[Rfam]
RNA: MIR159 microRNA precursor family
RNA sequence: GGUUAUGAAGUGGAGCUCCUUUCGUUCCAAUGAAAGGUUUAUCUGAAGGGUGAUACAGCUGCUUGUUCAUGGUUCCCACUAUUCUAUCUCAUAGGAAAAGAGAUAGGCUUGUGGUUUGCAUGACCAAGGAGCCGAAUCAACUCCUUGCUGACCACUCUUUGGAUUGAAGGGAGCUCUGCAUCUUGAUCCC
Numbered sequence: 001g002g003u004u005a006u007g008a009a010g011u012g013g014a015g016c017u018c019c020u021u022u023c024g025u026u027c028c029a030a031u032g033a034a035a036g037g038u039u040u041a042u043c044u045g046a047a048g049g050g051u052g053a054u055a056c057a058g059c060u061g062c063u064u065g066u067u068c069a070u071g072g073u074u075c076c077c078a079c080u081a082u083u084c085u086a087u088c089u090c091a092u093a094g095g096a097a098a099a100g101a102g103a104u105a106g107g108c109u110u111g112u113g114g115u116u117u118g119c120a121u122g123a124c125c126a127a128g129g130a131g132c133c134g135a136a137u138c139a140a141c142u143c144c145u146u147g148c149u150g151a152c153c154a155c156u157c158u159u160u161g162g163a164u165u166g167a168a169g170g171g172a173g174c175u176c177u178g179c180a181u182c183u184u185g186a187u188c189c190c
Base pairs, nucleotide, nucleotide: 013176014175015174016173017172018171019170020169023166024165026163027162028161029160036153059131060130062128063127064126068122069121070120071119076114